[Rfam]
Rfam assigns this 86-nucleotide RNA sequence from Rhamnella rubrinervis to the family "MIR473 microRNA precursor family". The family has 6 seed sequences and 189 matches in Rfam 15.1. Gene Ontology terms of the family: miRNA-mediated post-transcriptional gene silencing and RISC complex. The match comes from Rfam's covariance-model search (54 bits).
RNA sequence: GUUGCUCACUCUCCCUCAAGGGCUUCCAGCUAACAAUGCCAAGACAUUAGUGAUUGCUCGAAGCCGUUAGGGAGAGUGAACAAAAG
Dot-bracket structure: .....((((((((((..((.((((((.................................)))))).)).)))))))))).......